[Rfam]
RNA sequence: GACCUGCUGCCGAAUUGUCACCGAAGAAUGAAUGAAGUGGUGGUGGCAAUUAGGCAGCAGGUCCUUC
Numbered sequence: 001g002a003c004c005u006g007c008u009g010c011c012g013a014a015u016u017g018u019c020a021c022c023g024a025a026g027a028a029u030g031a032a033u034g035a036a037g038u039g040g041u042g043g044u045g046g047c048a049a050u051u052a053g054g055c056a057g058c059a060g061g062u063c064c065u066u067c
Stems, first nucleotide, its partner, number of pairs: 001063011016048007
RNA: DUF3800-IX RNA